[Rfam]
RNA sequence: CAAAAACUAGCCAUUUGUCAUUUUCUAAUUAGUACUAGUGUGUUAAAAUUUUAUAGGACCCAAUUAGAAAAUGACAAAUGGCUAGUUUUUU
Dot-bracket structure: .(((((((((((((((((((((((((((((.((.(((................))).).).))))))))))))))))))))))))))))).

The record is a 91-nucleotide sequence from Prunus avium, which matches "MIR6288 microRNA precursor family" in Rfam.
Rfam links the family to the GO terms RISC complex and miRNA-mediated post-transcriptional gene silencing.
It scores 86 bits against the family's covariance model.